[Rfam]
RNA: RgsA sRNA
Organism: Pseudomonas mangrovi
RNA sequence: GAGCAGCGGCCGGGGUAUUCCAAAUACGUUUAAAAAGUGGCGGAUCGGGGGUGGAAAUCUGCCGAUCUUCGCCAAUACUCAAGAUCACUGAUGCGCCGCGCCUUCCCCCGGGCGCCGCAUCGGCCGAGAUACCCCGGACCUCGGUAUCUCGAUUUACUCCUAAUGGUCUUGACCCGGAUUCCUCUCCCCCAGAGUCCGG
Numbered sequence: 001g002a003g004c005a006g007c008g009g010c011c012g013g014g015g016u017a018u019u020c021c022a023a024a025u026a027c028g029u030u031u032a033a034a035a036a037g038u039g040g041c042g043g044a045u046c047g048g049g050g051g052u053g054g055a056a057a058u059c060u061g062c063c064g065a066u067c068u069u070c071g072c073c074a075a076u077a078c079u080c081a082a083g084a085u086c087a088c089u090g091a092u093g094c095g096c097c098g099c100g101c102c103u104u105c106c107c108c109c110g111g112g113c114g115c116c117g118c119a120u121c122g123g124c125c126g127a128g129a130u131a132c133c134c135c136g137g138a139c140c141u142c143g144g145u146a147u148c149u150c151g152a153u154u155u156a157c158u159c160c161u162a163a164u165g166g167u168c169u170u171g172a173c174c175c176g177g178a179u180u181c182c183u184c185u186c187c188c189c190c191a192g193a194g195u196c197c198g199g
Base pairs, nucleotide, nucleotide: 039168040167041166043164088123089122090121092119093118095116097114098113099112125151126150127149128148129147130146131145132144133143174199175198176197177196179194180193181192